[Rfam]
Glutamine riboswitch aptamer (glnA leader): a 49-nucleotide sequence.
The literature on the family includes a 2011 paper in RNA Biol by Ames and Breaker, "Bacterial aptamers that selectively bind glutamine".
Rfam links the family to the GO term glutamine binding.
RNA sequence: AUCGUUCAGCCAUGAUGGCCGGAAGUAGGUAAUACCGAAGGAACGCACC
Numbered sequence: 001a002u003c004g005u006u007c008a009g010c011c012a013u014g015a016u017g018g019c020c021g022g023a024a025g026u027a028g029g030u031a032a033u034a035c036c037g038a039a040g041g042a043a044c045g046c047a048c049c
Stems, first nucleotide, its partner, number of pairs: 003045005009019004022046001028036003